[Rfam]
RNA sequence: UAGGAUGCUGUGAUGAGGCUUUAUGUGGACUAGAGUUUCUGAUACCUGGUCUUUUGUACCAGUGGUUGAAGACUACCCCUUGGCUGUCUGAGCUCUCGA
Numbered sequence: 001u002a003g004g005a006u007g008c009u010g011u012g013a014u015g016a017g018g019c020u021u022u023a024u025g026u027g028g029a030c031u032a033g034a035g036u037u038u039c040u041g042a043u044a045c046c047u048g049g050u051c052u053u054u055u056g057u058a059c060c061a062g063u064g065g066u067u068g069a070a071g072a073c074u075a076c077c078c079c080u081u082g083g084c085u086g087u088c089u090g091a092g093c094u095c096u097c098g099a
Stems, first nucleotide, its partner, number of pairs: 001099001003097002007093002036071004043064003047061003
Rfam assigns this 99-nucleotide RNA from Elaeis guineensis to the family "Small nucleolar RNA Z157/R69/R10". Taxonomically the source falls in Elaeis (Eukaryota, Spermatophyta, Arecaceae, Arecoideae). It scores 65 bits against the family's covariance model. The literature on the family includes a 2003 paper in Nucleic Acids Res by Chen et al., "The high diversity of snoRNAs in plants: identification and comparative study of 120 snoRNA genes from Oryza sativa".